A member of the RNA family "PyrR binding site" from Clostridium sp. cel8, 110 nucleotides long. A search with the family's covariance model found it, with a score of 58 bits. Lineage of the source: Bacteria > Bacillati > Clostridia > Clostridiaceae > Clostridium. The base pairs follow the family's consensus structure, which is taken from published work. Rfam classes the family as a cis-regulatory element.

RNA sequence: AUAACCUUUAAAUGAGUCCAGAGAGGCUUAGAAGGUGUAAUUUAUGGCUAUGUCAAUAAUAAUUAUUUAAAUAGUGUAAUUAUACCUUCAGUUAUGAAGGUAUUUUUUAU
Numbered sequence: 001a002u003a004a005c006c007u008u009u010a011a012a013u014g015a016g017u018c019c020a021g022a023g024a025g026g027c028u029u030a031g032a033a034g035g036u037g038u039a040a041u042u043u044a045u046g047g048c049u050a051u052g053u054c055a056a057u058a059a060u061a062a063u064u065a066u067u068u069a070a071a072u073a074g075u076g077u078a079a080u081u082a083u084a085c086c087u088u089c090a091g092u093u094a095u096g097a098a099g100g101u102a103u104u105u106u107u108u109a110u
Stems, first nucleotide, its partner, number of pairs: 004036006013030006047075005053069001055067004082103009